[Rfam]
RNA sequence: AGAUUAUAAGAACUCGUCUCUUAACUUUUAACUAGAAAAGCUAAGAACCGGUUCUUAAAUAAAAUAUUUAAAAACUGGUUCUUAAUUUUUUUUAGUUAAAAGUUAAAAGACGAGUUUUUAUAUUCU
Numbered sequence: 001a002g003a004u005u006a007u008a009a010g011a012a013c014u015c016g017u018c019u020c021u022u023a024a025c026u027u028u029u030a031a032c033u034a035g036a037a038a039a040g041c042u043a044a045g046a047a048c049c050g051g052u053u054c055u056u057a058a059a060u061a062a063a064a065u066a067u068u069u070a071a072a073a074a075c076u077g078g079u080u081c082u083u084a085a086u087u088u089u090u091u092u093u094a095g096u097u098a099a100a101a102g103u104u105a106a107a108a109g110a111c112g113a114g115u116u117u118u119u120a121u122a123u124u125c126u
Base pairs, nucleotide, nucleotide: 001126002125003124005122006121007120008119009118010117011116012115013114014113015112016111017110018109019108021106022105023104024103025102026101027100028099029098030097031096032095033094034093035092036091037090038089039088042084043083044082045081046080047079
The family of this 126-nucleotide RNA from Brassica oleracea is "MIR9563 microRNA precursor family". Lineage of the source: Eukaryota > Gunneridae > malvids > Brassiceae > Brassica oleracea. Rfam links the family to the GO terms RISC complex and miRNA-mediated post-transcriptional gene silencing.